Rfam assigns this 46-nucleotide RNA sequence from Stieleria maiorica to the family "Acido-Lenti-1 RNA". The family's RNA type in Rfam is small RNA. It scores 47 bits against the family's covariance model. The organism belongs to Stieleria, within Bacteria.
RNA sequence: CCACGGACUUGCGUCCGUGGCUAUCAUCUGCCAUGGCUUCGCCAUU
Numbered sequence: 001c002c003a004c005g006g007a008c009u010u011g012c013g014u015c016c017g018u019g020g021c022u023a024u025c026a027u028c029u030g031c032c033a034u035g036g037c038u039u040c041g042c043c044a045u046u
Base pairs, nucleotide, nucleotide: 001020002019003018004017005016006015007014008013033045034044035043036042037041